[Rfam]
RNA sequence: UCGUCAUGUCGCGACUGGCGUUGAGGUGGGCCACCACCGGGGAGCGACCGACCGGCAUCCGACCGCACGCCUGGGCCGAUGUG
Numbered sequence: 001u002c003g004u005c006a007u008g009u010c011g012c013g014a015c016u017g018g019c020g021u022u023g024a025g026g027u028g029g030g031c032c033a034c035c036a037c038c039g040g041g042g043a044g045c046g047a048c049c050g051a052c053c054g055g056c057a058u059c060c061g062a063c064c065g066c067a068c069g070c071c072u073g074g075g076c077c078g079a080u081g082u083g
Base pairs, nucleotide, nucleotide: 003052004051005050008048009047010046011045012044015041016040017071018070019069020068021067026037027036028035029034060078061077063075064074

The family of this 83-nucleotide sequence from Microbacterium protaetiae is "ZMP/ZTP riboswitch aptamer (pfl RNA motif)". Its family is annotated with regulation of purine nucleotide biosynthetic process and one-carbon metabolic process in the Gene Ontology. On this family, see Jones and Ferre-D'Amare, Nat Struct Mol Biol 2015: "Recognition of the bacterial alarmone ZMP through long-distance association of two RNA subdomains". Taxonomically the source falls in Microbacterium (Bacteria, Actinomycetota, Actinomycetes, Microbacteriaceae).